[Rfam]
RNA sequence: CUUUUCAUACCGGGGAGCUUGCAGCCGCAUCGCGGCCGGACAGGCUGAGAGGAAGCGCCGAUUCACGCUUCGACCCGAGGAACCUGACAUGGGUAAUGCCAACGAAGGGAGUUCUAUGACGCAGAUC
Numbered sequence: 001c002u003u004u005u006c007a008u009a010c011c012g013g014g015g016a017g018c019u020u021g022c023a024g025c026c027g028c029a030u031c032g033c034g035g036c037c038g039g040a041c042a043g044g045c046u047g048a049g050a051g052g053a054a055g056c057g058c059c060g061a062u063u064c065a066c067g068c069u070u071c072g073a074c075c076c077g078a079g080g081a082a083c084c085u086g087a088c089a090u091g092g093g094u095a096a097u098g099c100c101a102a103c104g105a106a107g108g109g110a111g112u113u114c115u116a117u118g119a120c121g122c123a124g125a126u127c
Base pairs, nucleotide, nucleotide: 009112010111011077012076013075014074017045018044019043020042021041052071053070054069055068056067083108084107085106090101091100092099
Dot-bracket structure: ........((((((..(((((...................)))))......(((((..........)))))..)))).....(((....(((......)))....)))..))...............
The record is a 127-nucleotide RNA sequence from Eggerthella lenta, which matches "TPP riboswitch aptamer (THI element)" in Rfam. About the family: Vitamin B(1) in its active form thiamin pyrophosphate (TPP) is an essential coenzyme that is synthesised by coupling of pyrimidine and thiazole moieties in bacteria. The previously detected thiamin-regulatory element, thi box was extended, resulting in a new, highly conserved RNA secondary structure, the THI element, which is widely distributed in eubacteria and also occurs in some archaea. Analysis of operon structures identified a large number of new candidate thiamin-regulated genes, mostly transporters, in various prokaryotic organisms. Lineage of the source: Bacteria > Bacillati > Coriobacteriia > Eggerthella > Eggerthella lenta.